[Rfam]
RNA sequence: AAACGUGCUCCGGGGUCGGUGUAAUUCCGAACCGGCGGUGACAGUCCGCGAGCCGGGAGCGUGUGGCCAUCGGCCAUUCGCGAACGGUUGAACCGGUGGAAUUCCGGUACCGACGGUGAAAGUCCGGAUGGGAGGCGGCACGUGU
Numbered sequence: 001a002a003a004c005g006u007g008c009u010c011c012g013g014g015g016u017c018g019g020u021g022u023a024a025u026u027c028c029g030a031a032c033c034g035g036c037g038g039u040g041a042c043a044g045u046c047c048g049c050g051a052g053c054c055g056g057g058a059g060c061g062u063g064u065g066g067c068c069a070u071c072g073g074c075c076a077u078u079c080g081c082g083a084a085c086g087g088u089u090g091a092a093c094c095g096g097u098g099g100a101a102u103u104c105c106g107g108u109a110c111c112g113a114c115g116g117u118g119a120a121a122g123u124c125c126g127g128a129u130g131g132g133a134g135g136c137g138g139c140a141c142g143u144g145u
Stems, first nucleotide, its partner, number of pairs: 003143006009135002017029003031123002033112002035049004044110002052088003092108005114126003

Shown here is a 145-nucleotide RNA sequence from Agromyces tardus, a member of the family "FMN riboswitch aptamer (RFN element)".
Lineage of the source: Bacteria > Bacillati > Actinomycetota > Micrococcales > Agromyces.
Pairs were carried over by alignment from the consensus structure, which is taken from published work.